The record is a 67-nucleotide sequence, which matches "S15-Flavobacteria ribosomal protein leader" in Rfam.
RNA sequence: UAUAUUUGCGCUUCCAUUUUAAAAUAAAACUGGUUACAUAAGAAUUAUUUACAAAAAUAUUGGCAUG
Numbered sequence: 001u002a003u004a005u006u007u008g009c010g011c012u013u014c015c016a017u018u019u020u021a022a023a024a025u026a027a028a029a030c031u032g033g034u035u036a037c038a039u040a041a042g043a044a045u046u047a048u049u050u051a052c053a054a055a056a057a058u059a060u061u062g063g064c065a066u067g
Base pairs, nucleotide, nucleotide: 014033015032016031017029018028019027020026

Its Rfam clan is "Ribosomal Protein S15 Leader clan". For this family Rfam cites "Discovery of 20 novel ribosomal leader candidates in bacteria and archaea" (Eckert and Weinberg, BMC Microbiol, 2020).